[Rfam]
Source information: Shown here is a 389-nucleotide RNA sequence from Corynebacterium canis, a member of the family "Bacterial RNase P class A". The match comes from Rfam's covariance-model search (282 bits). It is annotated as a ribozyme.
RNA sequence: UGAGCCAUCCGGGUGGACGCGGCACGAAUGUAUCGGCAUUGCAAUGCGCUGACAUGUCUGUCGAGGAAAGUCCGGACUCCACAGAGCACAGUGGUUGCUAACGGCAACCCAGGGCGACCUGCGGGAUUAGUGCCACAGAAAACAAACCGCCCAGCGAUGGGUAAGGGUGAAACGGUGCGGUAAGAGCGCACCAGCGCCCUAGGUGACUAGGGCGGCUAGGUAAACCCCACUGGGAGCAAGGCAAGAGGACGUACAUUGGUAUGUCUGUUCGGGCGUUAUAGGUUGCUCGCCGAGCCCGAAGGUACGCUGCUUGAGGCCCGCCAGCGAUGGCGGGUCCAGAUGGAUGUUCACCCCAAUGACAGAAUCCGGCUUAUAGGGUGGCUCAUUCG
Numbered sequence: 001u002g003a004g005c006c007a008u009c010c011g012g013g014u015g016g017a018c019g020c021g022g023c024a025c026g027a028a029u030g031u032a033u034c035g036g037c038a039u040u041g042c043a044a045u046g047c048g049c050u051g052a053c054a055u056g057u058c059u060g061u062c063g064a065g066g067a068a069a070g071u072c073c074g075g076a077c078u079c080c081a082c083a084g085a086g087c088a089c090a091g092u093g094g095u096u097g098c099u100a101a102c103g104g105c106a107a108c109c110c111a112g113g114g115c116g117a118c119c120u121g122c123g124g125g126a127u128u129a130g131u132g133c134c135a136c137a138g139a140a141a142a143c144a145a146a147c148c149g150c151c152c153a154g155c156g157a158u159g160g161g162u163a164a165g166g167g168u169g170a171a172a173c174g175g176u177g178c179g180g181u182a183a184g185a186g187c188g189c190a191c192c193a194g195c196g197c198c199c200u201a202g203g204u205g206a207c208u209a210g211g212g213c214g215g216c217u218a219g220g221u222a223a224a225c226c227c228c229a230c231u232g233g234g235a236g237c238a239a240g241g242c243a244a245g246a247g248g249a250c251g252u253a254c255a256u257u258g259g260u261a262u263g264u265c266u267g268u269u270c271g272g273g274c275g276u277u278a279u280a281g282g283u284u285g286c287u288c289g290c291c292g293a294g295c296c297c298g299a300a301g302g303u304a305c306g307c308u309g310c311u312u313g314a315g316g317c318c319c320g321c322c323a324g325c326g327a328u329g330g331c332g333g334g335u336c337c338a339g340a341u342g343g344a345u346g347u348u349c350a351c352c353c354c355a356a357u358g359a360c361a362g363a364a365u366c367c368g369g370c371u372u373a374u375a376g377g378g379u380g381g382c383u384c385a386u387u388c389g
Stems, first nucleotide, its partner, number of pairs: 001385010011374001012352007020063005026057001028055004068372003072369005077236004084288004089232005094108005109123001110121004124227002130225002132221003147166002149162005174192006194216001195214008240308003269299006279293001281291003316335008